[Rfam]
RNA sequence: CCGAGACCGGUCGCGUACGGGGCUCGUCCAGGCGCCGCUAGCGGCGACCAGAUGCAAGAGCCCGCGCCGGCCGGCUUGGCGAAGCGUGAGGCUGCGCCAUG
Dot-bracket structure: .............(((...(((((((((....(((((....)))))....)))....)))))))))...................................

The family of this 101-nucleotide sequence is "malK-III RNA". The family's RNA type in Rfam is cis-regulatory element.